[Rfam]
RNA sequence: AGAGGCCUAUGAUGAUGAAAUGUGCCUACAUUGUCUGAUCAUCUAAUGAAUGACAGAGACAUAAUUAGUUCUGAGGCCGCC
Numbered sequence: 001a002g003a004g005g006c007c008u009a010u011g012a013u014g015a016u017g018a019a020a021u022g023u024g025c026c027u028a029c030a031u032u033g034u035c036u037g038a039u040c041a042u043c044u045a046a047u048g049a050a051u052g053a054c055a056g057a058g059a060c061a062u063a064a065u066u067a068g069u070u071c072u073g074a075g076g077c078c079g080c081c
Stems, first nucleotide, its partner, number of pairs: 002080001004078004